RNase MRP: a 559-nucleotide RNA sequence from Vigna angularis. Lineage of the source: Eukaryota > Embryophyta > Spermatophyta > rosids > Vigna. About the family: RNase MRP is an enzymatically active ribonucleoprotein with two distinct roles in eukaryotes. In mitochondria it plays a direct role in the initiation of mitochondrial DNA replication. In the nucleus it is involved in precursor rRNA processing, where it cleaves the internal transcribed spacer 1 between 18S and 5.8S rRNAs. The family's RNA type in Rfam is ribozyme. A reference for the family is Schmitt et al. (1993), "Secondary structure of RNase MRP RNA as predicted by phylogenetic comparison", FASEB J.
Nucleotides: 559
Stems, first nucleotide, its partner, number of pairs: 002559006009551003014516005022045007050544003054541004068079004080095006428488006435481002439478004447467003456461001518528004
Number, partner (000 for none) and nucleotide at each position: 001000u002559g003558g004557a005556u006555u007554a008000u009551g010550g011549g012000a013000g014516a015515u016514g017513u018512g019000a020000u021000u022045g023044g024043g025042c026041c027040u028039a029000u030000g031000c032000u033000u034000c035000u036000u037000g038000c039028u040027g041026g042025g043024c044023u045022u046000a047000g048000g049000a050544a051543a052542g053000u054541c055540c056539c057538c058000g059000g060000g061000c062000c063000c064000u065000u066000a067000c068079u069078g070077u071076a072000g073000a074000a075000a076071u077070g078069c079068a080095g081094g082093c083092c084091c085090u086000g087000u088000a089000a090085a091084g092083g093082g094081u095080c096000a097000c098000u099000a100000c101000u102000a103000g104000g105000g106000g107000u108000g109000g110000g111000c112000a113000a114000a115000c116000u117000g118000c119000a120000c121000u122000a123000u124000u125000u126000g127000c128000a129000c130000u131000g132000c133000a134000c135000u136000a137000u138000a139000a140000a141000u142000c143000u144000a145000u146000u147000a148000c149000a150000a151000u152000u153000a154000a155000c156000u157000a158000u159000a160000a161000a162000u163000a164000g165000c166000c167000u168000u169000a170000c171000a172000u173000u174000a175000a176000g177000c178000u179000c180000g181000a182000g183000g184000a185000c186000u187000u188000a189000c190000a191000u192000c193000a194000a195000u196000g197000c198000u199000u200000c201000u202000u203000u204000u205000u206000g207000a208000u209000u210000u211000u212000c213000a214000a215000u216000c217000a218000u219000c220000c221000a222000a223000a224000u225000u226000a227000a228000u229000a230000g231000c232000a233000g234000c235000a236000c237000u238000u239000g240000a241000a242000g243000g244000u245000c246000c247000c248000a249000c250000a251000c252000a253000u254000c255000u256000g257000a258000c259000u260000g261000a262000a263000a264000c265000a266000c267000a268000g269000u270000u271000a272000a273000c274000u275000g276000u277000a278000u279000u280000a281000g282000a283000a284000u285000a286000u287000a288000a289000g290000c291000a292000g293000u294000u295000c296000a297000g298000u299000u300000u301000u302000u303000u304000u305000u306000a307000a308000a309000c310000u311000g312000a313000a314000c315000u316000a317000u318000u319000a320000a321000c322000a323000a324000g325000u326000a327000u328000a329000a330000u331000u332000a333000g334000u335000u336000u337000u338000a339000a340000g341000u342000a343000a344000a345000a346000u347000u348000a349000g350000u351000u352000u353000a354000a355000g356000u357000u358000u359000u360000u361000u362000a363000a364000g365000u366000u367000u368000a369000a370000a371000a372000c373000a374000g375000u376000a377000c378000a379000g380000a381000u382000a383000a384000a385000c386000u387000a388000u389000a390000a391000u392000u393000u394000a395000a396000g397000u398000u399000u400000u401000u402000u403000u404000a405000a406000u407000u408000a409000a410000c411000u412000a413000u414000g415000c416000c417000c418000a419000g420000c421000c422000c423000u424000a425000g426000u427000c428488a429487c430486u431485a432484c433483u434000a435481g436480c437000u438000g439478g440477a441476a442475c443000u444000u445000g446000u447467g448466g449465c450000u451000g452000a453000g454000a455000c456461a457000u458000g459000u460000g461456u462000g463000g464000a465449g466448c467447c468000u469000a470000u471000g472000c473000u474000u475442g476441u477440u478439c479000u480436g481435c482000c483433a484432g485431u486430a487429g488428u489000a490000a491000c492000u493000g494000g495000c496000c497000a498000a499000u500000u501000u502000c503000a504000c505000a506000g507000u508000c509000a510000u511000c512018c513017a514016c515015a516014u517000g518528g519527u520526c521525a522000u523000u524000a525521u526520g527519a528518c529000u530000a531000a532000c533000a534000g535000a536000a537000u538057g539056g540055g541054g542052c543051u544050u545000a546000u547000u548000c549011c550010c551009u552000c553000c554007u555006a556005a557004u558003c559002c